Shown here is a 105-nucleotide RNA from Paramaledivibacter caminithermalis, a member of the family "SAM riboswitch aptamer (S box leader)". The family's consensus secondary structure is taken from published work. The match comes from Rfam's covariance-model search (88 bits).
[Rfam]
RNA sequence: ACCUUAUCAAGAGUGACGGAGGGAAUAGGCCCUGUGAAGUCCAGCAACCGGUACAAGGUAUACGGUGCUAAGUCCUACAGAAUAAUGUAUUCUGGAAGAUGAGGU
Dot-bracket structure: ((((((((....(.(((...(((..[[[[)))......))))((((.((.((((...))))..))))))...(]]]]((((((.....))))))..)))))))))
Numbered sequence: 001a002c003c004u005u006a007u008c009a010a011g012a013g014u015g016a017c018g019g020a021g022g023g024a025a026u027a028g029g030c031c032c033u034g035u036g037a038a039g040u041c042c043a044g045c046a047a048c049c050g051g052u053a054c055a056a057g058g059u060a061u062a063c064g065g066u067g068c069u070a071a072g073u074c075c076u077a078c079a080g081a082a083u084a085a086u087g088u089a090u091u092c093u094g095g096a097a098g099a100u101g102a103g104g105u
Stems, first nucleotide, its partner, number of pairs: 001105008013042001015041003021032003026077004043069004048065002051061004073097001078094006